Rfam assigns this 167-nucleotide RNA sequence from Paenalicyclobacillus ferrooxydans to the family "c-di-AMP riboswitch aptamer (ydaO/yuaA leader)". It scores 71 bits against the family's covariance model. The organism belongs to Paenalicyclobacillus, within Bacteria.

RNA sequence: UACACAGACUGGCCGAAUUUCACACGUCGUCCCAAAGGGACGAAGGCGUGAAAACGGGGGAACCAAGUUUCAGGGGUGAGUUGACCGAUUGUUCCCAGCUAUCGAUCAUAGGCGAAUUCGUUUCGCCGAACCCGUCAGCUAACCUCGUAGGCGAAUGAUGUGCUUUG
Number, nucleotide and partner (000 for none) at each position: 001u000002a000003c000004a000005c000006a000007g000008a000009c000010u000011g000012g152013c151014c150015g000016a000017a000018u053019u052020u051021c050022a049023c048024a000025c000026g000027u000028c000029g000030u000031c000032c000033c000034a000035a000036a000037g000038g000039g000040a000041c000042g000043a000044a000045g000046g000047c000048g023049u022050g021051a020052a019053a018054a148055c147056g146057g145058g144059g143060g000061a000062a000063c000064c073065a000066a000067g000068u000069u000070u000071c000072a000073g064074g133075g132076g131077u000078g000079a000080g000081u000082u108083g107084a106085c000086c000087g000088a000089u000090u000091g000092u000093u000094c000095c000096c000097a000098g000099c000100u000101a000102u000103c000104g000105a000106u084107c083108a082109u000110a000111g127112g126113c125114g124115a000116a000117u000118u000119c000120g000121u000122u000123u000124c114125g113126c112127c111128g000129a000130a000131c076132c075133c074134g000135u000136c000137a000138g000139c000140u000141a000142a000143c059144c058145u057146c056147g055148u054149a000150g014151g013152c012153g000154a000155a000156u000157g000158a000159u000160g000161u000162g000163c000164u000165u000166u000167g000